[Rfam]
RNA: Selenocysteine transfer RNA
Organism: Pseudactinobacillus ducreyi
RNA sequence: GGAAGUGAGUCGUCUCCGGUGAGACGGCAGGAUUUCAAAUCCUGUUAAGGACGCCAGCGUGCUUGGGUGGGUUCGACUCCCAUUCACUUCC
Numbered sequence: 001g002g003a004a005g006u007g008a009g010u011c012g013u014c015u016c017c018g019g020u021g022a023g024a025c026g027g028c029a030g031g032a033u034u035u036c037a038a039a040u041c042c043u044g045u046u047a048a049g050g051a052c053g054c055c056a057g058c059g060u061g062c063u064u065g066g067g068u069g070g071g072u073u074c075g076a077c078u079c080c081c082a083u084u085c086a087c088u089u090c091c
Stems, first nucleotide, its partner, number of pairs: 001091009011026006027045006047064003051060001068082004